The family of this 88-nucleotide RNA sequence from Bacillus sp. PK3_68 is "c-di-GMP-I riboswitch aptamer". The match comes from Rfam's covariance-model search (62 bits).
RNA sequence: UAUCUAUACUGGCAAACUCGAUGAAAGUCGGGGACGAAAAGCCACAGGUCUAAAACAUGGAAUGUACCAUGAUGGCCGGGCUGCCGAA
Dot-bracket structure: ............(...((((((....))))))...)...((((.(.((((......((.....)).....)))..).)))))......
Numbered sequence: 001u002a003u004c005u006a007u008a009c010u011g012g013c014a015a016a017c018u019c020g021a022u023g024a025a026a027g028u029c030g031g032g033g034a035c036g037a038a039a040a041g042c043c044a045c046a047g048g049u050c051u052a053a054a055a056c057a058u059g060g061a062a063u064g065u066a067c068c069a070u071g072a073u074g075g076c077c078g079g080g081c082u083g084c085c086g087a088a
Stems, first nucleotide, its partner, number of pairs: 013036001017032006040082004045078001047076001048073003057065002